[Rfam]
RNA sequence: GAGCUGGCUUAGUCAUGUGGUUACUUCGAUAUACUUAUUUUGAAAUCACCAGAAGAGGAGAACGAGUUCGAGUCUUCAGUUUCAGCUAUAUACCACCGACGCCAUCCAGCCAACUU
Numbered sequence: 001g002a003g004c005u006g007g008c009u010u011a012g013u014c015a016u017g018u019g020g021u022u023a024c025u026u027c028g029a030u031a032u033a034c035u036u037a038u039u040u041u042g043a044a045a046u047c048a049c050c051a052g053a054a055g056a057g058g059a060g061a062a063c064g065a066g067u068u069c070g071a072g073u074c075u076u077c078a079g080u081u082u083c084a085g086c087u088a089u090a091u092a093c094c095a096c097c098g099a100c101g102c103c104a105u106c107c108a109g110c111c112a113a114c115u116u
Stems, first nucleotide, its partner, number of pairs: 003110005012100003017096004025072005

Shown here is a 116-nucleotide RNA sequence from Mytilus galloprovincialis, a member of the family "Vault RNA". NCBI's taxonomy places the organism under Eukaryota, Bivalvia, Pteriomorphia, Mytilinae, Mytilus. It is annotated as a non-coding RNA gene.